RNA sequence: UUUAAGUGUAGUUGUGGGUUUCUAUAUCUAACGUUUAAUCGUCUGUAUUAUUUAAAAAAAUUAUAAAAAGUUUAAAAAUAAUAAAUCAUGUAUAAAGUAUUAUUUCUGUUUUAUCACCUAAUAAACAUAAAAAUACUAAAUAUAAAAUAUUUUUAAAUAAAACAGAUAGUCAAAUGUAAGAUAGAAAUUCACAGCUGCACUGAUA
Numbered sequence: 001u002u003u004a005a006g007u008g009u010a011g012u013u014g015u016g017g018g019u020u021u022c023u024a025u026a027u028c029u030a031a032c033g034u035u036u037a038a039u040c041g042u043c044u045g046u047a048u049u050a051u052u053u054a055a056a057a058a059a060a061u062u063a064u065a066a067a068a069a070g071u072u073u074a075a076a077a078a079u080a081a082u083a084a085a086u087c088a089u090g091u092a093u094a095a096a097g098u099a100u101u102a103u104u105u106c107u108g109u110u111u112u113a114u115c116a117c118c119u120a121a122u123a124a125a126c127a128u129a130a131a132a133a134u135a136c137u138a139a140a141u142a143u144a145a146a147a148u149a150u151u152u153u154u155a156a157a158u159a160a161a162a163c164a165g166a167u168a169g170u171c172a173a174a175u176g177u178a179a180g181a182u183a184g185a186a187a188u189u190c191a192c193a194g195c196u197g198c199a200c201u202g203a204u205a
Stems, first nucleotide, its partner, number of pairs: 027181003031177002034174003038170002041167006048160004
The record is a 205-nucleotide RNA from Oryza meridionalis, which matches "MIR812 microRNA precursor family" in Rfam. Rfam links the family to the GO terms RISC complex and miRNA-mediated post-transcriptional gene silencing. The family has 22 seed sequences and 57,451 matches in Rfam 15.1.